[Rfam]
RNA sequence: AGGGAGGCGGAUGCCUGGGCGGAGCUGAGCCGUGCGCUGCCCGUCACCAGCCCUCCCAAGAGUGACCCCGCUCUCUGAUGACCGUGCGGACCUGAGAGAAAUCCCCACGGACAGAUACGGAGCAGACACGC
Numbered sequence: 001a002g003g004g005a006g007g008c009g010g011a012u013g014c015c016u017g018g019g020c021g022g023a024g025c026u027g028a029g030c031c032g033u034g035c036g037c038u039g040c041c042c043g044u045c046a047c048c049a050g051c052c053c054u055c056c057c058a059a060g061a062g063u064g065a066c067c068c069c070g071c072u073c074u075c076u077g078a079u080g081a082c083c084g085u086g087c088g089g090a091c092c093u094g095a096g097a098g099a100a101a102u103c104c105c106c107a108c109g110g111a112c113a114g115a116u117a118c119g120g121a122g123c124a125g126a127c128a129c130g131c
Base pairs, nucleotide, nucleotide: 002057003056004055005054006053007052016043017042018041022037024035025034068125070123071122072121073120074119082110083109084108088104089103090102
Shown here is a 131-nucleotide RNA from Gadus morhua, a member of the family "Small Cajal body specific RNA 8".
About the family: scaRNAs are a specific class of small nuclear RNAs which localise to the Cajal bodies and guide the modification of RNA polymerase II transcribed spliceosomal RNAs U1, U2, U4, U5 and U12. U92 belong to the H/ACA box class of guide RNAs as it has the predicted hairpin-hinge-hairpin-tail structure, conserved H/ACA-box motifs and is found associated with GAR1.